[Rfam]
The family of this 112-nucleotide sequence from Papaver nudicaule is "Small nucleolar RNA Z266". A search with the family's covariance model found it, with a score of 45 bits. By type it is a C/D-box small nucleolar RNA. Rfam links the family to the GO terms RNA processing and nucleolus. The family has 11 seed sequences and 719 matches in Rfam 15.1. Pairs were carried over by alignment from the consensus structure, which was predicted with PFOLD.
RNA sequence: AGCUGAAGGAGAAUGAUGAUACAAUUAGAUGUGUGAAUGGAGAUGCAGAGAAAUCUCCUCUCCUUCAUGAACUCAAAAAGUUUAUUUGGCGAUAAUGUCUGACUCUUUUGCU
Numbered sequence: 001a002g003c004u005g006a007a008g009g010a011g012a013a014u015g016a017u018g019a020u021a022c023a024a025u026u027a028g029a030u031g032u033g034u035g036a037a038u039g040g041a042g043a044u045g046c047a048g049a050g051a052a053a054u055c056u057c058c059u060c061u062c063c064u065u066c067a068u069g070a071a072c073u074c075a076a077a078a079a080g081u082u083u084a085u086u087u088g089g090c091g092a093u094a095a096u097g098u099c100u101g102a103c104u105c106u107u108u109u110g111c112u
Base pairs, nucleotide, nucleotide: 001112002111003110005108006107007106009105010104011103